[Rfam]
Rfam assigns this 61-nucleotide RNA sequence from Cocos nucifera to the family "Plastid-psbN 5UTR RNA".

RNA sequence: UGCAACCCUCAUAAGUGGUGUAGUCCCGCAGCCCGAUGCUACUUUACCAUAUUUCGGAUUC
Numbered sequence: 001u002g003c004a005a006c007c008c009u010c011a012u013a014a015g016u017g018g019u020g021u022a023g024u025c026c027c028g029c030a031g032c033c034c035g036a037u038g039c040u041a042c043u044u045u046a047c048c049a050u051a052u053u054u055c056g057g058a059u060u061c
Base pairs, nucleotide, nucleotide: 017045018044020042021041022040023039024038027035
Record summary:
NCBI's taxonomy places the organism under Eukaryota, Streptophyta, Streptophytina, Attaleinae, Cocos. The family's consensus secondary structure was predicted with LocARNA. Rfam 15.1 lists 2,345 matches to the family in 397 species. Plastid psbN is a non-coding RNA (ncRNA) recognised in plastids. It was reported as a conserved 11 stem-loop in the prime untranslated region (5UTR) of psbN genes. It has been reported that the motif is retained in a subset of mature transcripts in barley, which can suggests a possible role in transcript alternative 5 prime processing. By type it is a cis-regulatory element.